[Rfam]
Rfam assigns this 130-nucleotide RNA from Panthera leo to the family "Small nucleolar RNA SNORA42/SNORA80 family". The organism belongs to Panthera, within Eukaryota. Pairs were carried over by alignment from the consensus structure, which was predicted with RNAalifold. For this family Rfam cites "A computational screen for mammalian pseudouridylation guide H/ACA RNAs" (Schattner et al., RNA, 2006).
RNA sequence: GCACGGUGAUGGACUGGUGACAGCCCUUCUCUGUGGGCCUUUCAUAGUGUGCCAGUGCCAGAGAUGCAUGCAAACCAUUGCCCAGCCUUCUCACCAGUGGGCUGUGAGCACUGAAGGGAGCUGUACAGUG
Numbered sequence: 001g002c003a004c005g006g007u008g009a010u011g012g013a014c015u016g017g018u019g020a021c022a023g024c025c026c027u028u029c030u031c032u033g034u035g036g037g038c039c040u041u042u043c044a045u046a047g048u049g050u051g052c053c054a055g056u057g058c059c060a061g062a063g064a065u066g067c068a069u070g071c072a073a074a075c076c077a078u079u080g081c082c083c084a085g086c087c088u089u090c091u092c093a094c095c096a097g098u099g100g101g102c103u104g105u106g107a108g109c110a111c112u113g114a115a116g117g118g119a120g121c122u123g124u125a126c127a128g129u130g
Stems, first nucleotide, its partner, number of pairs: 001058004005053004015047001017045004022040002024036002071123002076113002081108001083104006